[Rfam]
RNA sequence: GGUAUUGUUUACCCCAUUUGAAAGGCCCCGGAACCCUUCAAAUAACCUGUGGACCGGAACAUCCACGCUGUAAACAUUAA
Numbered sequence: 001g002g003u004a005u006u007g008u009u010u011a012c013c014c015c016a017u018u019u020g021a022a023a024g025g026c027c028c029c030g031g032a033a034c035c036c037u038u039c040a041a042a043u044a045a046c047c048u049g050u051g052g053a054c055c056g057g058a059a060c061a062u063c064c065a066c067g068c069u070g071u072a073a074a075c076a077u078u079a080a
Stems, first nucleotide, its partner, number of pairs: 006076007016043005022038004
Rfam assigns this 80-nucleotide RNA from Streptococcus ferus to the family "Ribosomal protein L13 leader". For this family Rfam cites "Diverse mechanisms for regulating ribosomal protein synthesis in Escherichia coli" (Zengel and Lindahl, Prog Nucleic Acid Res Mol Biol, 1994). The match comes from Rfam's covariance-model search (55 bits). Its family is annotated with regulation of gene expression in the Gene Ontology. Rfam classes the family as a cis-regulatory leader. Rfam describes the family as follows. This family is a putative r-protein leader autoregulatory structure found in B. subtilis and other low-GC Gram-positive bacteria. It is located in the 5' untranslated regions of mRNAs encoding the L13-S9 (rplM-rpsI) ribosomal protein operon.